[Rfam]
RNA: Guanidine-I riboswitch aptamer
Organism: Gracilibacillus halotolerans
RNA sequence: CAAAACGCUUUCUAGGGUUCCGCAAGUAACUAACUUGGUCUGGUCCGAGAGAAGGCGCACAGUCAUAUAACUGUGACACGGAAGGAAAAAAGCCUGGGAGAU
Number, nucleotide and partner (000 for none) at each position: 001c000002a000003a000004a000005a000006c000007g056008c055009u054010u053011u052012c051013u000014a000015g046016g045017g000018u000019u000020c043021c042022g040023c037024a036025a035026g034027u033028a000029a000030c000031u000032a000033a027034c026035u025036u024037g023038g000039u000040c022041u000042g021043g020044u000045c016046c015047g000048a000049g000050a000051g012052a011053a010054g009055g008056c007057g000058c075059a074060c073061a072062g071063u070064c000065a000066u000067a000068u000069a000070a063071c062072u061073g060074u059075g058076a000077c097078a000079c100080g000081g000082a000083a095084g094085g093086a000087a000088a000089a000090a000091a000092g000093c085094c084095u083096g000097g077098g000099a000100g079101a000102u000